Background
The record is a 111-nucleotide RNA sequence from Gracilibacillus dipsosauri, which matches "TPP riboswitch aptamer (THI element)" in Rfam. It scores 73 bits against the family's covariance model. Rfam links the family to the GO term thiamine pyrophosphate binding.
[Rfam]
RNA sequence: UAUAACUACUAGGGGUGCCAAUGAAUGGCUGAGAGAGAAGCACAUGUGCUUUUCAACCCUUAAGGACCUGAUCUGGUUUAUACCAGCGGAGGGAAGUAGCUGAUCUUACUA
Numbered sequence: 001u002a003u004a005a006c007u008a009c010u011a012g013g014g015g016u017g018c019c020a021a022u023g024a025a026u027g028g029c030u031g032a033g034a035g036a037g038a039a040g041c042a043c044a045u046g047u048g049c050u051u052u053u054c055a056a057c058c059c060u061u062a063a064g065g066a067c068c069u070g071a072u073c074u075g076g077u078u079u080a081u082a083c084c085a086g087c088g089g090a091g092g093g094a095a096g097u098a099g100c101u102g103a104u105c106u107u108a109c110u111a
Base pairs, nucleotide, nucleotide: 006099007098008097009096010095011060012059013058014057017029018028019027020026036053037052038051039050040049041048042047067092068091069090073086074085075084076083